[Rfam]
RNA sequence: CCAGUCGGCCGGACGACCGCUGCCGCAAGCGCCGAAAGGCCGCGGGGGAGGAAAGUCCGGGCUCCAUGGAAACACGGUGCCGGGUAAUGCCCGGCGGGGGCGACCCCAGGGAAAGUGCCACAGAAAGCAAACCGCCGCGACCCUCGGGUGCGCGGCAAGGGUGAAAGGGUGGGGUAAGAGCCCACCGCGCGGCCGGCAACGUCCGCGGCAUGGUAAACCCCACCGGGAGCAAGACCGAAUAGGGAUGGCGCAGGGCCUUCGGGUCCGGGUCGGUUUCCAGGCCGGCCAUCCGGGUAGGUUGCGCGAGGCGUCCGGCGACGGGCGUCCCAGAUGAAUGGUCGUCACGCGCGGGGUUCCGGCCCCGCGCCAUACAGAACCCGGCUUACAGGCCGACUGGCAUC
Numbered sequence: 001c002c003a004g005u006c007g008g009c010c011g012g013a014c015g016a017c018c019g020c021u022g023c024c025g026c027a028a029g030c031g032c033c034g035a036a037a038g039g040c041c042g043c044g045g046g047g048g049a050g051g052a053a054a055g056u057c058c059g060g061g062c063u064c065c066a067u068g069g070a071a072a073c074a075c076g077g078u079g080c081c082g083g084g085u086a087a088u089g090c091c092c093g094g095c096g097g098g099g100g101c102g103a104c105c106c107c108a109g110g111g112a113a114a115g116u117g118c119c120a121c122a123g124a125a126a127g128c129a130a131a132c133c134g135c136c137g138c139g140a141c142c143c144u145c146g147g148g149u150g151c152g153c154g155g156c157a158a159g160g161g162u163g164a165a166a167g168g169g170u171g172g173g174g175u176a177a178g179a180g181c182c183c184a185c186c187g188c189g190c191g192g193c194c195g196g197c198a199a200c201g202u203c204c205g206c207g208g209c210a211u212g213g214u215a216a217a218c219c220c221c222a223c224c225g226g227g228a229g230c231a232a233g234a235c236c237g238a239a240u241a242g243g244g245a246u247g248g249c250g251c252a253g254g255g256c257c258u259u260c261g262g263g264u265c266c267g268g269g270u271c272g273g274u275u276u277c278c279a280g281g282c283c284g285g286c287c288a289u290c291c292g293g294g295u296a297g298g299u300u301g302c303g304c305g306a307g308g309c310g311u312c313c314g315g316c317g318a319c320g321g322g323c324g325u326c327c328c329a330g331a332u333g334a335a336u337g338g339u340c341g342u343c344a345c346g347c348g349c350g351g352g353g354u355u356c357c358g359g360c361c362c363c364g365c366g367c368c369a370u371a372c373a374g375a376a377c378c379c380g381g382c383u384u385a386c387a388g389g390c391c392g393a394c395u396g397g398c399a400u401c
Base pairs, nucleotide, nucleotide: 001397002396003395004394005393006392007391008390009389010388011386012343013342014341015340016339017338018337020048021047023045024044025043026042053384054383055382057381058380059379060378061377062229063228064227065226075225076224077223078222079221080094081093082092083091084090095109096107097106098105099104110220111219115218116217117214118213119212132160133159134156135155136154137153138152139151140149141148142147168186169185170184171183172182173181187209188207189206190205191204192203194201195200233300234299235298236297243291244290245289246288247287248286271284272283273282274281275280307326308325309324310323311322312321313320314319
A member of the RNA family "Bacterial RNase P class A" from Polymorphum gilvum, 401 nucleotides long. A search with the family's covariance model found it, with a score of 291 bits. Rfam links the family to the GO terms ribonuclease P activity, dimeric ribonuclease P complex and tRNA processing. By type it is a ribozyme. From the family's description: Ribonuclease P (RNase P) is a ubiquitous endoribonuclease, found in archaea, bacteria and eukarya as well as chloroplasts and mitochondria.